The record is a 90-nucleotide RNA from Branchiostoma belcheri, which matches "mir-2060 microRNA precursor family" in Rfam. The organism belongs to Branchiostoma, within Eukaryota. Pairs were carried over by alignment from the consensus structure, which was predicted with RNAalifold.
[Rfam]
RNA sequence: GUAUGGAUAUCGAUGGUGUUCAGCUCCAAGGACAGGUGUGUUUACCUGUGUGUGGAAAGUGUUCAGCACCAAGGACAGGUAUGUUUGUGU
Number, nucleotide and partner (000 for none) at each position: 001g080002u079003a000004u077005g076006g000007a000008u000009a000010u000011c000012g000013a000014u071015g070016g069017u068018g067019u066020u065021c000022a063023g062024c061025u000026c059027c000028a000029a000030g051031g000032a049033c048034a047035g046036g045037u044038g043039u000040g000041u000042u000043u038044a037045c036046c035047u034048g033049u032050g000051u030052g000053u000054g000055g000056a000057a000058a000059g026060u000061g024062u023063u022064c000065a020066g019067c018068a017069c016070c015071a014072a000073g000074g000075a000076c005077a004078g000079g002080u001081a000082u000083g000084u000085u000086u000087g000088u000089g000090u000